[Rfam]
RNA sequence: UCCAGCGAGCAGCCGGGGCAGGAGCGGGGGAACCACGUUCCUCCGGGUGCCGCCACGUCCCAGCGGCACCCUUGGGGUGAAGCCGUGCACCGUGGAUCGUCCACGUGCCGGCCGGGCACCCAGCCCGAACCCGACAGCUCACCUCGCAGGCGUCUGGGAAAGGGCUC
Numbered sequence: 001u002c003c004a005g006c007g008a009g010c011a012g013c014c015g016g017g018g019c020a021g022g023a024g025c026g027g028g029g030g031a032a033c034c035a036c037g038u039u040c041c042u043c044c045g046g047g048u049g050c051c052g053c054c055a056c057g058u059c060c061c062a063g064c065g066g067c068a069c070c071c072u073u074g075g076g077g078u079g080a081a082g083c084c085g086u087g088c089a090c091c092g093u094g095g096a097u098c099g100u101c102c103a104c105g106u107g108c109c110g111g112c113c114g115g116g117c118a119c120c121c122a123g124c125c126c127g128a129a130c131c132c133g134a135c136a137g138c139u140c141a142c143c144u145c146g147c148a149g150g151c152g153u154c155u156g157g158g159a160a161a162g163g164g165c166u167c
Base pairs, nucleotide, nucleotide: 001023002022003021024147025146026145027144028143029142034074035073075132076131077130083111084110085109114126115125116124117123